[Rfam]
RNA sequence: UUGAAUGGUAGAGGUGCGGCAGGCAUCAGUACCGGGUUCCGGGGUGACACCAAUGGGGAUUCGGGAAAGGGCUUGUCGCCGAAGUCAGCAGAGUGUCGAAACUGCUGGUUGGGGUGUCGUUGAAUAAGCGCCACACUGUCACGGUGUUGUGUUAACCCGCGAGGGUUAAAGCAGUACGUUCUAUUGCCAUCUGGGCUUGCCUGUUCCGGUGUGUACCGGGCAGGGAACCGUGGAGUGCUACCGAAUCU
Number, nucleotide and partner (000 for none) at each position: 001u000002u000003g000004a000005a000006u243007g242008g241009u240010a239011g238012a000013g000014g000015u000016g079017c078018g077019g076020c075021a074022g073023g072024c071025a000026u000027c000028a000029g000030u000031a000032c064033c063034g062035g061036g060037u059038u058039c057040c000041g000042g000043g000044g000045u000046g000047a000048c000049a000050c000051c000052a000053a000054u000055g000056g000057g039058g038059a037060u036061u035062c034063g033064g032065g000066a000067a000068a000069g000070g000071g024072c023073u022074u021075g020076u019077c018078g017079c016080c000081g000082a000083a110084g109085u108086c107087a106088g105089c104090a103091g102092a000093g000094u099095g000096u000097c000098g000099a094100a000101a000102c091103u090104g089105c088106u087107g086108g085109u084110u083111g137112g136113g000114g134115u133116g132117u000118c130119g129120u128121u127122g000123a000124a000125u000126a000127a121128g120129c119130g118131c000132c116133a115134c114135a000136c112137u111138g000139u233140c232141a231142c230143g229144g228145u227146g000147u000148u000149g000150u000151g000152u000153u000154a000155a000156c000157c000158c000159g000160c000161g000162a000163g000164g000165g000166u000167u000168a000169a000170a000171g000172c000173a000174g000175u000176a000177c000178g000179u000180u000181c000182u000183a000184u000185u000186g000187c000188c000189a000190u000191c000192u000193g000194g000195g000196c000197u000198u000199g000200c000201c000202u000203g000204u000205u000206c000207c000208g000209g000210u000211g000212u000213g000214u000215a000216c000217c000218g000219g000220g000221c000222a000223g000224g000225g000226a000227a145228c144229c143230g142231u141232g140233g139234a000235g000236u000237g000238c011239u010240a009241c008242c007243g006244a000245a000246u000247c000248u000